[Rfam]
RNA sequence: UCUAGAACUCAAGAUAUGGGCUGAACAUUGAACAGUGUCUGGGCUGCAGGACAGAUUCAGACUUCUUCGUUGUUGCUAUAAUUUAAACUUGAAAACGGCCUUUUUAAAUCUUGGACUCCCCAUGAAAUUUUUAGGCCCAUAUCUUAGCUUUCCAUC
Number, nucleotide and partner (000 for none) at each position: 001u000002c000003u154004a000005g152006a151007a150008c147009u146010c000011a145012a144013g143014a142015u141016a140017u139018g138019g137020g136021c134022u133023g132024a131025a130026c000027a129028u000029u127030g000031a000032a000033c000034a000035g123036u122037g121038u000039c000040u000041g119042g118043g117044c000045u115046g000047c000048a112049g111050g110051a109052c000053a000054g105055a104056u000057u000058c000059a000060g099061a000062c098063u097064u000065c000066u000067u000068c000069g000070u000071u000072g088073u087074u086075g000076c000077u000078a000079u000080a000081a000082u000083u000084u000085a000086a074087a073088c072089u000090u000091g000092a000093a000094a000095a000096c000097g063098g062099c060100c000101u000102u000103u000104u055105u054106a000107a000108a000109u051110c050111u049112u048113g000114g000115a045116c000117u043118c042119c041120c000121c037122a036123u035124g000125a000126a000127a029128u000129u027130u025131u024132u023133a022134g021135g000136c020137c019138c018139a017140u016141a015142u014143c013144u012145u011146a009147g008148c000149u000150u007151u006152c005153c000154a003155u000156c000
MIR2912 microRNA precursor family: a 156-nucleotide RNA sequence from Populus trichocarpa.